The record is a 74-nucleotide RNA sequence from Jatropha curcas, which matches "Small nucleolar RNA R21" in Rfam.
Lineage of the source: Eukaryota > Embryophyta > Tracheophyta > Spermatophyta > Jatropha.
Rfam links the family to the GO terms nucleolus and RNA processing.
The match comes from Rfam's covariance-model search (56 bits).
[Rfam]
Nucleotides: 074
Base pairs, nucleotide, nucleotide: 001074002073003072004071005070006069
Number, partner (000 for none) and nucleotide at each position: 001074c002073a003072u004071c005070u006069c007000u008000a009000u010000g011000a012000u013000g014000a015000u016000u017000g018000c019000u020000u021000g022000u023000u024000a025000a026000u027000u028000g029000a030000a031000a032000g033000u034000a035000g036000u037000g038000g039000a040000c041000u042000g043000a044000u045000c046000u047000g048000u049000u050000g051000a052000u053000g054000a055000u056000u057000a058000a059000u060000a061000u062000a063000u064000u065000c066000u067000g068000a069006g070005a071004g072003a073002u074001g